[Rfam]
RNA sequence: ACUUGCUGGCGCGCUUCCUCCCAUUUCGCGCUGCAAGUGUUCCCCUCGAAGGCAUCUAAAUGUCUUCUUAAAUUCAGCCGGGCUUUUUAGUCCGGCUUUUUUU
Numbered sequence: 001a002c003u004u005g006c007u008g009g010c011g012c013g014c015u016u017c018c019u020c021c022c023a024u025u026u027c028g029c030g031c032u033g034c035a036a037g038u039g040u041u042c043c044c045c046u047c048g049a050a051g052g053c054a055u056c057u058a059a060a061u062g063u064c065u066u067c068u069u070a071a072a073u074u075c076a077g078c079c080g081g082g083c084u085u086u087u088u089a090g091u092c093c094g095g096c097u098u099u100u101u102u103u
Stems, first nucleotide, its partner, number of pairs: 001038005011031004048067006076097009
RNA: Alphaproteobacterial ar15